[Rfam]
Shown here is an 80-nucleotide RNA from Phalacrocorax carbo, a member of the family "mir-1791 microRNA precursor family". Taxonomically the source falls in Phalacrocorax (Eukaryota, Bilateria, Coelurosauria, Phalacrocoracidae). It scores 91 bits against the family's covariance model.

RNA sequence: GACACCAUGUUGGGCUGCAUCAGUCAUGCCAUAUUACAAAACCUAAUGCAAUGUGACUGAUGCAGGCUGACAUGAUGUGU
Numbered sequence: 001g002a003c004a005c006c007a008u009g010u011u012g013g014g015c016u017g018c019a020u021c022a023g024u025c026a027u028g029c030c031a032u033a034u035u036a037c038a039a040a041a042c043c044u045a046a047u048g049c050a051a052u053g054u055g056a057c058u059g060a061u062g063c064a065g066g067c068u069g070a071c072a073u074g075a076u077g078u079g080u
Stems, first nucleotide, its partner, number of pairs: 002080004006074008015065014032048005